Shown here is a 65-nucleotide RNA sequence from Glaciimonas sp. PCH181, a member of the family "Betaproteobacteria toxic small RNA". Overexpression in amino aid rich medium attenuates growth, suggesting role in repressing amino acid intake and metabolism. The organism belongs to Glaciimonas, within Bacteria.
RNA sequence: UGUCUCCUCCAACACCUCCUAAGGUUUGGAUUUACCCGCUCCCGUAAGGUGAGCGGGUUUUUUUU
Numbered sequence: 001u002g003u004c005u006c007c008u009c010c011a012a013c014a015c016c017u018c019c020u021a022a023g024g025u026u027u028g029g030a031u032u033u034a035c036c037c038g039c040u041c042c043c044g045u046a047a048g049g050u051g052a053g054c055g056g057g058u059u060u061u062u063u064u065u
Stems, first nucleotide, its partner, number of pairs: 008030005014025003034058008
The literature on the family includes a 2012 paper in Genome Res by Kimelman et al., "A vast collection of microbial genes that are toxic to bacteria".